[Rfam]
RNA sequence: GCGGGGCUGCCCGGCGCGUCAGGCAAUUCAUCCCCGGGGCCAAUAAGCAUCCUCCGGGAGCUGGCUCUGUCCGGAUCGUGGUCCGGGUAUCUGGCGCCCACCUGCUAACGCAGGCCUUGGGAGGAUGAUACGCCAACGGCCAUGGUGGCUCCGCA
Numbered sequence: 001g002c003g004g005g006g007c008u009g010c011c012c013g014g015c016g017c018g019u020c021a022g023g024c025a026a027u028u029c030a031u032c033c034c035c036g037g038g039g040c041c042a043a044u045a046a047g048c049a050u051c052c053u054c055c056g057g058g059a060g061c062u063g064g065c066u067c068u069g070u071c072c073g074g075a076u077c078g079u080g081g082u083c084c085g086g087g088u089a090u091c092u093g094g095c096g097c098c099c100a101c102c103u104g105c106u107a108a109c110g111c112a113g114g115c116c117u118u119g120g121g122a123g124g125a126u127g128a129u130a131c132g133c134c135a136a137c138g139g140c141c142a143u144g145g146u147g148g149c150u151c152c153g154c155a
Stems, first nucleotide, its partner, number of pairs: 002153010013141003017138003031122004036117002039115003056099003060095005069088007
Annotation: The family of this 155-nucleotide RNA sequence from Roseicella frigidaeris is "6S / SsrS RNA". The family's consensus secondary structure is taken from published work. The source organism's lineage runs through Bacteria, Pseudomonadati, Alphaproteobacteria, Roseomonadaceae and Roseicella. Rfam classes the family as a non-coding RNA gene. About the family: E. coli 6S RNA was the first non coding RNA to be sequenced, but its function was unknown until recently. Rfam 15.1 lists 5,006 matches to the family in 4,638 species. The match comes from Rfam's covariance-model search (74 bits).